The family of this 105-nucleotide RNA sequence from Collichthys lucidus is "Vault RNA". The family has 73 seed sequences and 2,873 matches in Rfam 15.1. A reference for the family is Stadler et al. (2009), "Evolution of Vault RNAs", Mol Biol Evol. The source organism's lineage runs through Eukaryota, Deuterostomia, Teleostomi, Neopterygii and Collichthys. It is annotated as a non-coding RNA gene. The family's consensus secondary structure is taken from published work.
RNA sequence: GCACUAGUUUAGCUCAGAGGUUGUUUCGACUGUCAGUUCUCUCUGAAGAAUUUGCUGAUCUCAUCCCUCCCUGGGAUCGAACUUCAAGUGCUGUUCUGUGUUUUU
Numbered sequence: 001g002c003a004c005u006a007g008u009u010u011a012g013c014u015c016a017g018a019g020g021u022u023g024u025u026u027c028g029a030c031u032g033u034c035a036g037u038u039c040u041c042u043c044u045g046a047a048g049a050a051u052u053u054g055c056u057g058a059u060c061u062c063a064u065c066c067c068u069c070c071c072u073g074g075g076a077u078c079g080a081a082c083u084u085c086a087a088g089u090g091c092u093g094u095u096c097u098g099u100g101u102u103u104u105u
Stems, first nucleotide, its partner, number of pairs: 002100003007095001012089003017085004025081005